[Rfam]
RNA sequence: UUAUCUGUUUACCUCUUAUUAAUCUUUCUAAUUCAUAAACAUAGUCAUCCAGUCAUCUGGAUUUGAGUGGCUCCUGUCCACUCUGUUUGACGCCUCCCUGUUAAUGACUCAGAGCCGCGCCUUUGCGGCUCUUUUUUU
Numbered sequence: 001u002u003a004u005c006u007g008u009u010u011a012c013c014u015c016u017u018a019u020u021a022a023u024c025u026u027u028c029u030a031a032u033u034c035a036u037a038a039a040c041a042u043a044g045u046c047a048u049c050c051a052g053u054c055a056u057c058u059g060g061a062u063u064u065g066a067g068u069g070g071c072u073c074c075u076g077u078c079c080a081c082u083c084u085g086u087u088u089g090a091c092g093c094c095u096c097c098c099u100g101u102u103a104a105u106g107a108c109u110c111a112g113a114g115c116c117g118c119g120c121c122u123u124u125g126c127g128g129c130u131c132u133u134u135u136u137u138u
Stems, first nucleotide, its partner, number of pairs: 001044004020035001022033001025030001048061004065083006089102004111132009
The record is a 138-nucleotide RNA from Roseibium hamelinense, which matches "Alphaproteobacterial sRNA BjrC1505" in Rfam. The literature on the family includes a 2012 paper in RNA Biol by Madhugiri et al., "Small RNAs of the Bradyrhizobium/Rhodopseudomonas lineage and their analysis". By type it is a small RNA. Lineage of the source: Bacteria > Pseudomonadota > Alphaproteobacteria > Stappiaceae > Roseibium.